[Rfam]
RNA sequence: GGCUGGUCCCAAGGCAAUGAGUUAUCUCACUUGAUGGCUCACAGUCUGUUACAGAUUGGACUCAUUGUUCUACUUUUCCCCCCCUUGUCACUACUGCACUUGACUAGUCUUAA
Numbered sequence: 001g002g003c004u005g006g007u008c009c010c011a012a013g014g015c016a017a018u019g020a021g022u023u024a025u026c027u028c029a030c031u032u033g034a035u036g037g038c039u040c041a042c043a044g045u046c047u048g049u050u051a052c053a054g055a056u057u058g059g060a061c062u063c064a065u066u067g068u069u070c071u072a073c074u075u076u077u078c079c080c081c082c083c084c085u086u087g088u089c090a091c092u093a094c095u096g097c098a099c100u101u102g103a104c105u106a107g108u109c110u111u112a113a
Base pairs, nucleotide, nucleotide: 001109002108003107004106005105006104007103008102011100014097015096016092018090019089020088043075044074048070